[Rfam]
Source information:
This 375-nucleotide part of an RNA from Chroococcidiopsis thermalis belongs to the Rfam family "Bacterial large subunit ribosomal RNA". A search with the family's covariance model found it, with a score of 2697 bits.
RNA sequence: GCAAAUAUUGGUGAGAAUCCAAUACCCCGAAACCCUAAGGGUUCCUCCACAAGGCUCGUCCGUGGAGGGUUAGUCAGGACCUAAGGCGAGGCCGAACGGCGUAGUCGAUGGACAACGGGCGAACAAUCCCGUACUGAAGAUUAGUUGUGCAGAGGGACGGAGAAGGCACGCACCAGCCAGAUGUUGGUUACUGGCGCAAUUAACCGAGGCAUCGAGAAGCGGCGAAAACGCUUCGAGCUGGGGUUAAGAGACCGAGGGUCUACGGACCCGAAGUGGUAGCGGUCAAGCUUCCAAGAAAAGCUCUAAACACGUUAACUAAUCGUCACCUGUACCCAAAACCGACACAGGUAGGGAGGUAGAGAAUACUAAGGGGCG
Numbered sequence: 001g002c003a004a005a006u007a008u009u010g011g012u013g014a015g016a017a018u019c020c021a022a023u024a025c026c027c028c029g030a031a032a033c034c035c036u037a038a039g040g041g042u043u044c045c046u047c048c049a050c051a052a053g054g055c056u057c058g059u060c061c062g063u064g065g066a067g068g069g070u071u072a073g074u075c076a077g078g079a080c081c082u083a084a085g086g087c088g089a090g091g092c093c094g095a096a097c098g099g100c101g102u103a104g105u106c107g108a109u110g111g112a113c114a115a116c117g118g119g120c121g122a123a124c125a126a127u128c129c130c131g132u133a134c135u136g137a138a139g140a141u142u143a144g145u146u147g148u149g150c151a152g153a154g155g156g157a158c159g160g161a162g163a164a165g166g167c168a169c170g171c172a173c174c175a176g177c178c179a180g181a182u183g184u185u186g187g188u189u190a191c192u193g194g195c196g197c198a199a200u201u202a203a204c205c206g207a208g209g210c211a212u213c214g215a216g217a218a219g220c221g222g223c224g225a226a227a228a229c230g231c232u233u234c235g236a237g238c239u240g241g242g243g244u245u246a247a248g249a250g251a252c253c254g255a256g257g258g259u260c261u262a263c264g265g266a267c268c269c270g271a272a273g274u275g276g277u278a279g280c281g282g283u284c285a286a287g288c289u290u291c292c293a294a295g296a297a298a299a300g301c302u303c304u305a306a307a308c309a310c311g312u313u314a315a316c317u318a319a320u321c322g323u324c325a326c327c328u329g330u331a332c333c334c335a336a337a338a339c340c341g342a343c344a345c346a347g348g349u350a351g352g353g354a355g356g357u358a359g360a361g362a363a364u365a366c367u368a369a370g371g372g373g374c375g
Stems, first nucleotide, its partner, number of pairs: 006024006025373004033353004039333002044068006053061002075329004080111002085106003089102001091100003115132005135325003139321007146309002151304004159291004165284003172277004176195005196252001200247004208239003212236002216234005222229001256269005339348002355367004
Its family is annotated with structural constituent of ribosome and ribosome in the Gene Ontology.